[Rfam]
RNA: FIE3 (ftz instability element 3') element
Organism: Trifolium medium
Nucleotides: 067
Base pairs, nucleotide, nucleotide: 021047022046023045024044025043026042027041028039029038
Number, partner (000 for none) and nucleotide at each position: 001000u002000g003000a004000u005000g006000a007000u008000g009000a010000a011000a012000a013000c014000a015000u016000a017000g018000g019000a020000u021047a022046g023045g024044a025043g026042a027041c028039c029038g030000a031000u032000a033000c034000a035000a036000u037000c038029c039028g040000u041027g042026u043025u044024u045023c046022c047021u048000u049000u050000u051000a052000a053000a054000u055000a056000g057000u058000a059000a060000a061000u062000g063000u064000u065000a066000g067000a